[Rfam]
RNA: c-di-GMP-I riboswitch aptamer
RNA sequence: UAAUGAAAAAGGCAAACUUAUUGAAAAAUAAGGACGCAAAGCCACGGGUCUACUGUUGAUUUAACUAAGAUCGCCGGGCUACCGAA
Numbered sequence: 001u002a003a004u005g006a007a008a009a010a011g012g013c014a015a016a017c018u019u020a021u022u023g024a025a026a027a028a029u030a031a032g033g034a035c036g037c038a039a040a041g042c043c044a045c046g047g048g049u050c051u052a053c054u055g056u057u058g059a060u061u062u063a064a065c066u067a068a069g070a071u072c073g074c075c076g077g078g079c080u081a082c083c084g085a086a
Stems, first nucleotide, its partner, number of pairs: 012037002017032006040080004045076003048071003055065004